RNA sequence: AGCCCGCUACGAGAGCGGAGCCGACAAACCCCCACCUGUUUUUUUAUUUCACACAUACCGCCUGGAUUCAGCAAUGAACCGGGACGGAAGG
Numbered sequence: 001a002g003c004c005c006g007c008u009a010c011g012a013g014a015g016c017g018g019a020g021c022c023g024a025c026a027a028a029c030c031c032c033c034a035c036c037u038g039u040u041u042u043u044u045u046a047u048u049u050c051a052c053a054c055a056u057a058c059c060g061c062c063u064g065g066a067u068u069c070a071g072c073a074a075u076g077a078a079c080c081g082g083g084a085c086g087g088a089a090g091g
Stems, first nucleotide, its partner, number of pairs: 002021002004018005058087003061083005067078003
Shown here is a 91-nucleotide sequence from Geobacter sp. OR-1, a member of the family "pan motif". By type it is a cis-regulatory element. The organism belongs to Geobacter, within Bacteria. The match comes from Rfam's covariance-model search (43 bits). The base pairs follow the family's consensus structure, which is taken from published work.